[Rfam]
RNA: ALIL pseudoknot
RNA sequence: CGCGUUUUUUGCCCAAGUUGAGCGCGACCGCCGUUUGAAGUCAUGAAGGCCCCUGUCGAUCUGCAUCGCGAUACCUUGGGAGUCGAGCCGAUCUGCAAGGGCUUGCGGAUUGUUUGG
Numbered sequence: 001c002g003c004g005u006u007u008u009u010u011g012c013c014c015a016a017g018u019u020g021a022g023c024g025c026g027a028c029c030g031c032c033g034u035u036u037g038a039a040g041u042c043a044u045g046a047a048g049g050c051c052c053c054u055g056u057c058g059a060u061c062u063g064c065a066u067c068g069c070g071a072u073a074c075c076u077u078g079g080g081a082g083u084c085g086a087g088c089c090g091a092u093c094u095g096c097a098a099g100g101g102c103u104u105g106c107g108g109a110u111u112g113u114u115u116g117g
Stems, first nucleotide, its partner, number of pairs: 017031002020028001080115003089112002092109007